[Rfam]
Nucleotides: 122
Stems, first nucleotide, its partner, number of pairs: 009114005020051006053102003056098002060096003066089002
Number, partner (000 for none) and nucleotide at each position: 001000u002000c003000g004000g005000c006000g007000g008000g009114c010113u011112c012111u013110g014000g015000a016000g017000a018000g019000c020051a021050a022049c023048u024047g025046c026000g027000a028000c029000g030000c031000g032000c033000c034000u035000g036000g037000c038000g039000c040000u041000c042000g043000u044000c045000g046025g047024c048023a049022g050021u051020u052000c053102a054101c055100c056098g057097a058000a059000g060096g061095g062094g063000a064000g065000a066089g067088g068000u069000g070000c071000g072000c073000c074000g075000c076000u077000g078000c079000a080000a081000g082000c083000g084000g085000c086000g087000g088067c089066c090000g091000g092000a093000u094062c095061u096060c097057u098056c099000a100055g101054g102053u103000c104000a105000c106000a107000g108000g109000a110013c111012a112011g113010a114009g115000g116000g117000g118000g119000c120000g121000u122000u